[Rfam]
RNA: Small nucleolar RNA SNORA49
RNA sequence: CUUUGACAGCCCAGGGGCUGCUCUGUGCAGUGCCCUGCCCUUCCCUGAGCAGCAGAGGUGUCACACACACCCAGGCCCAGCACAGCUCCUGUUCUGUUUGGGAUCUCCUGGCAGAGCCUACAAA
Numbered sequence: 001c002u003u004u005g006a007c008a009g010c011c012c013a014g015g016g017g018c019u020g021c022u023c024u025g026u027g028c029a030g031u032g033c034c035c036u037g038c039c040c041u042u043c044c045c046u047g048a049g050c051a052g053c054a055g056a057g058g059u060g061u062c063a064c065a066c067a068c069a070c071c072c073a074g075g076c077c078c079a080g081c082a083c084a085g086c087u088c089c090u091g092u093u094c095u096g097u098u099u100g101g102g103a104u105c106u107c108c109u110g111g112c113a114g115a116g117c118c119u120a121c122a123a124a
Stems, first nucleotide, its partner, number of pairs: 003049002007047003012037005017031005060118001062116001064114001076102005082097004